[Rfam]
RNA: ZMP/ZTP riboswitch aptamer (pfl RNA motif)
RNA sequence: GACGUCCGUCGCGACUGGCGCAAUCGGCUCGCCGAACCGGCGCGCCGAGGUGGAACGGACCACCAGGAAGCGGACAGCCGUGACACCGCGCGCCUGGGUGUCACGG
Number, nucleotide and partner (000 for none) at each position: 001g000002a000003c080004g079005u000006c077007c000008g075009u074010c072011g071012c070013g000014a000015c067016u066017g094018g093019c092020g091021c090022a000023a000024u000025c000026g000027g000028c000029u000030c000031g000032c000033c000034g000035a000036a000037c000038c000039g000040g000041c000042g000043c000044g000045c000046c000047g000048a000049g000050g063051u062052g061053g060054a000055a000056c000057g000058g000059a000060c053061c052062a051063c050064c000065a000066g016067g015068a000069a000070g012071c011072g010073g000074a009075c008076a000077g006078c000079c004080g003081u000082g000083a101084c100085a099086c098087c097088g000089c000090g021091c020092g019093c018094c017095u000096g000097g087098g086099u085100g084101u083102c000103a000104c000105g000106g000